[Rfam]
RNA sequence: UCCCCGUUUGGGCCAUUGCCCGGCAGCUUCCUCGCAGAUCUUGCCAAAAGGCUGCCGAGAUGAUAACGCGGUUUUUACGGAUGUAUUUUGUCCGCGUGUUAACGCCCUCCUGUCUUUCAAAGUUUUGGAGAGGAAACAAAAACAAGUCUCCGUU
Numbered sequence: 001u002c003c004c005c006g007u008u009u010g011g012g013c014c015a016u017u018g019c020c021c022g023g024c025a026g027c028u029u030c031c032u033c034g035c036a037g038a039u040c041u042u043g044c045c046a047a048a049a050g051g052c053u054g055c056c057g058a059g060a061u062g063a064u065a066a067c068g069c070g071g072u073u074u075u076u077a078c079g080g081a082u083g084u085a086u087u088u089u090g091u092c093c094g095c096g097u098g099u100u101a102a103c104g105c106c107c108u109c110c111u112g113u114c115u116u117u118c119a120a121a122g123u124u125u126u127g128g129a130g131a132g133g134a135a136a137c138a139a140a141a142a143c144a145a146g147u148c149u150c151c152g153u154u
Stems, first nucleotide, its partner, number of pairs: 006024002009022004029063002031059004036053002040051001042047001080148003083143002086141006105133002107130004114122003
About this RNA:
A member of the RNA family "Ascomycota telomerase RNA" from Trichoderma gamsii, 154 nucleotides of a longer RNA. Its family is annotated with telomere maintenance via telomerase, telomerase activity and telomerase catalytic core complex in the Gene Ontology. Rfam classes the family as a non-coding RNA gene. The literature on the family includes a 2013 paper in Nucleic Acids Res by Qi et al., "The common ancestral core of vertebrate and fungal telomerase RNAs". The pairing is the family consensus, mapped onto this sequence.